This 81-nucleotide RNA from Mauremys mutica belongs to the Rfam family "Small nucleolar RNA SNORD20". NCBI's taxonomy places the organism under Eukaryota, Chordata, Sarcopterygii, Testudines, Mauremys. About the family: U20 is a C/D box small nucleolar RNA that is encoded in intron 11 of the nucleolin gene in human, mouse and rat.
RNA sequence: UGGAACUGAUGAACACUCCGUGAAAUGAUGUGAGGAAAAAUCACAAUGAAAGUUUCUCAAGAUAGUCAAGUACUGAUCCAG
Numbered sequence: 001u002g003g004a005a006c007u008g009a010u011g012a013a014c015a016c017u018c019c020g021u022g023a024a025a026u027g028a029u030g031u032g033a034g035g036a037a038a039a040a041u042c043a044c045a046a047u048g049a050a051a052g053u054u055u056c057u058c059a060a061g062a063u064a065g066u067c068a069a070g071u072a073c074u075g076a077u078c079c080a081g
Stems, first nucleotide, its partner, number of pairs: 001080004